This 76-nucleotide sequence from Alligator sinensis belongs to the Rfam family "Mammalian CPEB3 ribozyme". The family's consensus secondary structure is taken from published work.
RNA sequence: UUACAAACACUGAGGCCAAAGCAGAAGCACUCACUGUGCGGCCCUGUAAGACUCCAACAAAUCCGUGAAUUCUGCU
Numbered sequence: 001u002u003a004c005a006a007a008c009a010c011u012g013a014g015g016c017c018a019a020a021g022c023a024g025a026a027g028c029a030c031u032c033a034c035u036g037u038g039c040g041g042c043c044c045u046g047u048a049a050g051a052c053u054c055c056a057a058c059a060a061a062u063c064c065g066u067g068a069a070u071u072c073u074g075c076u
Base pairs, nucleotide, nucleotide: 012044014043015042016041017040020076021075022074023073024072025071026070027039028038029037050063051062053060
Dot-bracket structure: ...........[.[[[[..((((((((((.......)))]]]]].....((.(......).))......)))))))
From the family's description: The mammalian CPEB3 ribozyme is a self cleaving RNA located in the second intron of the CPEB3 gene which belongs to a family of genes regulating messenger RNA polyadenylation. This ribozyme is highly conserved and found only in mammals. The CPEB3 ribozyme is structurally and biochemically related to the human hepatitis delta virus (HDV) ribozyme and the HDV ribozyme is proposed to have arisen from the human transcriptome. There is currently only one other known self cleaving ribozyme in mammals, the CoTC motif. The match comes from Rfam's covariance-model search (38 bits). Rfam links the family to the GO term RNA nuclease activity.